Notes: Rfam assigns this 82-nucleotide RNA sequence from Erpetoichthys calabaricus to the family "mir-16 microRNA precursor family". The family's consensus secondary structure was predicted with PFOLD. Its family is annotated with miRNA-mediated post-transcriptional gene silencing and RISC complex in the Gene Ontology. A search with the family's covariance model found it, with a score of 39 bits. Lineage of the source: Eukaryota > Metazoa > Cladistia > Polypteridae > Erpetoichthys.

[Rfam]
RNA sequence: GCCACACUGAAGCAGCACAAGUAAUAUUGGGGUUUAGGUAUCUGUCUCCCACACCAAUAUUUACGUGCUGCUAGAACGGAGC
Number, nucleotide and partner (000 for none) at each position: 001g082002c081003c000004a000005c078006a000007c000008u000009g000010a000011a072012g071013c070014a069015g068016c067017a066018c065019a000020a062021g000022u000023a061024a060025u059026a058027u057028u056029g055030g054031g000032g000033u000034u000035u000036a000037g000038g000039u000040a000041u000042c000043u000044g000045u000046c000047u000048c000049c000050c000051a000052c000053a000054c030055c029056a028057a027058u026059a025060u024061u023062u020063a000064c000065g018066u017067g016068c015069u014070g013071c012072u011073a000074g000075a000076a000077c000078g005079g000080a000081g002082c001